[Rfam]
RNA sequence: CGUUCGGUUCUCGGCGGAGAAUGUUAGCAGGGGCUAGAUAGAAUAAAAAAUUUGAGAUGAUACACUCCAGACUUGAAAGAGAGUUGACCCAAGUAUCCGCAAUCUGCUGACGGGUUAAUAGGCAGACGGGCGAAAGUAGGUAAAGUGACACCCCAAGACCUUCAGAAUGAGCCUUGCAAAGAGGUUCGGGCUAAGUCCUUUUAGGAUAUGCUUAAAACGGGGCGAGGUAGGCUGAUAGCGACAUGACGAGGACACGAACAAGACCCGAAAGGGUAGCAGGUAGGGCAUGCAGACACCUGUAAAAAGUUCGUUCAAAGCUUGAAAUGGUUUUGAAGUUUUAACCC
Numbered sequence: 001c002g003u004u005c006g007g008u009u010c011u012c013g014g015c016g017g018a019g020a021a022u023g024u025u026a027g028c029a030g031g032g033g034c035u036a037g038a039u040a041g042a043a044u045a046a047a048a049a050a051u052u053u054g055a056g057a058u059g060a061u062a063c064a065c066u067c068c069a070g071a072c073u074u075g076a077a078a079g080a081g082a083g084u085u086g087a088c089c090c091a092a093g094u095a096u097c098c099g100c101a102a103u104c105u106g107c108u109g110a111c112g113g114g115u116u117a118a119u120a121g122g123c124a125g126a127c128g129g130g131c132g133a134a135a136g137u138a139g140g141u142a143a144a145g146u147g148a149c150a151c152c153c154c155a156a157g158a159c160c161u162u163c164a165g166a167a168u169g170a171g172c173c174u175u176g177c178a179a180a181g182a183g184g185u186u187c188g189g190g191c192u193a194a195g196u197c198c199u200u201u202u203a204g205g206a207u208a209u210g211c212u213u214a215a216a217a218c219g220g221g222g223c224g225a226g227g228u229a230g231g232c233u234g235a236u237a238g239c240g241a242c243a244u245g246a247c248g249a250g251g252a253c254a255c256g257a258a259c260a261a262g263a264c265c266c267g268a269a270a271g272g273g274u275a276g277c278a279g280g281u282a283g284g285g286c287a288u289g290c291a292g293a294c295a296c297c298u299g300u301a302a303a304a305a306g307u308u309c310g311u312u313c314a315a316a317g318c319u320u321g322a323a324a325u326g327g328u329u330u331u332g333a334a335g336u337u338u339u340a341a342c343c344c
Stems, first nucleotide, its partner, number of pairs: 007022006059097005070085004103126006112344007151222004169187006189212003195207004254311006263274004276300006312333007
Dot-bracket structure: ......((((((....))))))....................................(((((......((((........)))).......))))).....[[[[[[...(((((((..]]]]]]........................((((..............((((((.......)))))).(((...((((.....))))..)))......))))...............................((((((...((((....)))).((((((.............)))))).....))))))(((((((........)))))))....)))))))
RNA: GEBRO RNA